[Rfam]
Nucleotides: 184
Stems, first nucleotide, its partner, number of pairs: 006179006016083005022077003032068007087116006094110004117143002120140008145169009
Number, partner (000 for none) and nucleotide at each position: 001000a002000g003000u004000g005000a006179g007178g008177g009176u010175a011174g012000a013000g014000g015000u016083g017082c018081a019080a020079g021000g022077a023076u024075c025000a026000u027000u028000a029000g030000u031000a032068c033067a034066u035065u036064a037063g038062u039000g040000g041000a042000g043000g044000a045000g046000a047000a048000u049000g050000a051000g052000c053000u054000c055000u056000a057000a058000a059000g060000a061000a062038a063037c064036u065035a066034g067033u068032g069000a070000a071000a072000a073000g074000g075024g076023a077022u078000a079020c080019u081018u082017g083016c084000c085000g086000a087116a088115g089114c090113u091112u092111a093000u094110u095109g096108a097107g098000c099000a100000c101000u102000c103000a104000u105000a106000a107097c108096u109095c110094a111092u112091a113090a114089g115088c116087u117143g118142g119000g120140a121139c122138u123137g124136u125135u126134c127133u128000a129000a130000a131000a132000a133127a134126g135125g136124a137123c138122a139121g140120u141000a142118c143117u144000g145169u146168c147167a148166u149165a150164u151163a152162g153161c154000a155000a156000g157000c158000a159000u160000c161153g162152c163151u164150a165149u166148a167147u168146g169145g170000a171000g172000g173000g174011c175010u176009a177008u178007c179006u180000c181000a182000c183000a184000c
This 184-nucleotide RNA from Halalkalibacter wakoensis belongs to the Rfam family "Lysine riboswitch aptamer". The match comes from Rfam's covariance-model search (122 bits). Gene Ontology term of the family: lysine biosynthetic process. Taxonomically the source falls in Halalkalibacter wakoensis (Bacteria, Bacilli, Caryophanales, Halalkalibacter).